The family of this 167-nucleotide RNA sequence from Nostoc sp. PCC 7107 is "Ribosomal protein L10 leader". The family's consensus secondary structure was predicted with CMfinder. Rfam's curators write: This family is a putative r-protein leader autoregulatory structure found in B. subtilis and other low-GC Gram-positive bacteria. It is located in the 5' untranslated regions of mRNAs encoding ribosomal proteins L10 and L12 (rplJ-rplL). A Rho-independent transcription terminator structure that is probably involved in regulation is included at the 3' end.
[Rfam]
RNA sequence: AAAACUAAAUAGUUCAAACCGGAGACAGCAGGUGCGAAUAGCUUAAUAUCCUGCCGAGGUAAAAACUCUAAUUGCCUGAAUUACUACCUACACGGUGUAGGUGUUACAGCGCCAAGAGCUUUACUGUGAAACCCCGGUUGAAAAAAUCGGGGUUUAUUGUUUUGGGU
Numbered sequence: 001a002a003a004a005c006u007a008a009a010u011a012g013u014u015c016a017a018a019c020c021g022g023a024g025a026c027a028g029c030a031g032g033u034g035c036g037a038a039u040a041g042c043u044u045a046a047u048a049u050c051c052u053g054c055c056g057a058g059g060u061a062a063a064a065a066c067u068c069u070a071a072u073u074g075c076c077u078g079a080a081u082u083a084c085u086a087c088c089u090a091c092a093c094g095g096u097g098u099a100g101g102u103g104u105u106a107c108a109g110c111g112c113c114a115a116g117a118g119c120u121u122u123a124c125u126g127u128g129a130a131a132c133c134c135c136g137g138u139u140g141a142a143a144a145a146a147u148c149g150g151g152g153u154u155u156a157u158u159g160u161u162u163u164g165g166g167u
Stems, first nucleotide, its partner, number of pairs: 028054005034042002132152008